This 359-nucleotide RNA from Campylobacter curvus belongs to the Rfam family "transfer-messenger RNA". The literature on the family includes a 2010 paper in RNA Biol by Mao et al., "Variations on the tmRNA gene". It is annotated as a non-coding RNA gene. The match comes from Rfam's covariance-model search (144 bits). The source organism's lineage runs through Bacteria, Campylobacterota, Campylobacterales, Campylobacter and Campylobacter curvus.
[Rfam]
RNA sequence: GGGAGCGACUUGGCUUCGACAGGAGCAGAGUGGCUACGGUGGCAUGUCGCUUUGAGCAAAGCGUAAAAAGCUCAAACUAAAUUUAAACGCAAAUAACGUUAAAUUCGCUCCUGCUUACGCUAAAGCUGCGUAAGUUCAGUUGAGCCUCGCCAUUUUGAUACUAUCUAAGAAAGUCUGCGAGUAACCCCAGAUAGAGUAGGCGUGCGUCCUGACGAGGCGUGAGCUGAAAUUUCGUCUUAGUUUAGCCGUUCGUUUUGGAAAGUGAGCGUGGCUAGAUGAAAUUUUCACUUUUGCUAAACAUGUAGAGGCUGUGGUUGUUUUGUUUUUGGACAGGGGUUCGAUCCCCCUCGCUUCCACCA
Numbered sequence: 001g002g003g004a005g006c007g008a009c010u011u012g013g014c015u016u017c018g019a020c021a022g023g024a025g026c027a028g029a030g031u032g033g034c035u036a037c038g039g040u041g042g043c044a045u046g047u048c049g050c051u052u053u054g055a056g057c058a059a060a061g062c063g064u065a066a067a068a069a070g071c072u073c074a075a076a077c078u079a080a081a082u083u084u085a086a087a088c089g090c091a092a093a094u095a096a097c098g099u100u101a102a103a104u105u106c107g108c109u110c111c112u113g114c115u116u117a118c119g120c121u122a123a124a125g126c127u128g129c130g131u132a133a134g135u136u137c138a139g140u141u142g143a144g145c146c147u148c149g150c151c152a153u154u155u156u157g158a159u160a161c162u163a164u165c166u167a168a169g170a171a172a173g174u175c176u177g178c179g180a181g182u183a184a185c186c187c188c189a190g191a192u193a194g195a196g197u198a199g200g201c202g203u204g205c206g207u208c209c210u211g212a213c214g215a216g217g218c219g220u221g222a223g224c225u226g227a228a229a230u231u232u233c234g235u236c237u238u239a240g241u242u243u244a245g246c247c248g249u250u251c252g253u254u255u256u257g258g259a260a261a262g263u264g265a266g267c268g269u270g271g272c273u274a275g276a277u278g279a280a281a282u283u284u285u286c287a288c289u290u291u292u293g294c295u296a297a298a299c300a301u302g303u304a305g306a307g308g309c310u311g312u313g314g315u316u317g318u319u320u321u322g323u324u325u326u327u328g329g330a331c332a333g334g335g336g337u338u339c340g341a342u343c344c345c346c347c348u349c350g351c352u353u354c355c356a357c358c359a
Base pairs, nucleotide, nucleotide: 001355002354003353004352005351006350007349020328021327022326023325024324025323026322027321028320029319031317032316033315034314035313036312037311038310039309040308043302044301045300046299047298048063049062050061051060052059053074054073055072056071057070126139127138128137146181147180148179149178150177153172154171155170156169162194166191200224201223203221204220205219206218211236212235213234214233215232240277241276242275243274244273245272246271247270248269249268252267253266254265257294259292260291262288263287264286332348333347334346335345336344